RNA sequence: GUCUUACUGUGGGUUCCUUGCAAGCACUUCACGAGGCAUUAUUUCAAAAUGCACCAUUGUGAAGUGGUUGGGGGAACUCUUGGUGCCAC
Numbered sequence: 001g002u003c004u005u006a007c008u009g010u011g012g013g014u015u016c017c018u019u020g021c022a023a024g025c026a027c028u029u030c031a032c033g034a035g036g037c038a039u040u041a042u043u044u045c046a047a048a049a050u051g052c053a054c055c056a057u058u059g060u061g062a063a064g065u066g067g068u069u070g071g072g073g074g075a076a077c078u079c080u081u082g083g084u085g086c087c088a089c
Stems, first nucleotide, its partner, number of pairs: 005085005011079009022069002025066010036055001

The family of this 89-nucleotide RNA from Triticum aestivum is "mir-395 microRNA precursor family". Pairs were carried over by alignment from the consensus structure, which was predicted with PFOLD. A reference for the family is Jones-Rhoades and Bartel (2004), "Computational Identification of Plant MicroRNAs and Their Targets, Including a Stress-Induced miRNA", Mol Cell. The organism belongs to Triticum, within Eukaryota. About the family: mir-395 was identified in both Arabidopsis thaliana and Oryza sativa computationally and was later experimentally verified. mir-395 is thought to target mRNAs coding for ATP sulphurylases. The mature sequence is excised from the 3' arm of the hairpin. Gene Ontology terms of the family: miRNA-mediated post-transcriptional gene silencing and RISC complex.